[Rfam]
RNA sequence: GCGUCCCGGGGAACAUUCAACGCUGUCGGUGAGUUUGUGGCUGUGGGUGAAACCACCGAGCGUGACACCGUGGGGACAC
Numbered sequence: 001g002c003g004u005c006c007c008g009g010g011g012a013a014c015a016u017u018c019a020a021c022g023c024u025g026u027c028g029g030u031g032a033g034u035u036u037g038u039g040g041c042u043g044u045g046g047g048u049g050a051a052a053c054c055a056c057c058g059a060g061c062g063u064g065a066c067a068c069c070g071u072g073g074g075g076a077c078a079c
Stems, first nucleotide, its partner, number of pairs: 001079001003077001004075005017065003021062002026059006033053004
mir-181 microRNA precursor family: a 79-nucleotide RNA sequence from Columba livia.
The match comes from Rfam's covariance-model search (46 bits).
Lineage of the source: Eukaryota > Teleostomi > Sauropsida > Columbiformes > Columba.
Its family is annotated with RISC complex and miRNA-mediated post-transcriptional gene silencing in the Gene Ontology.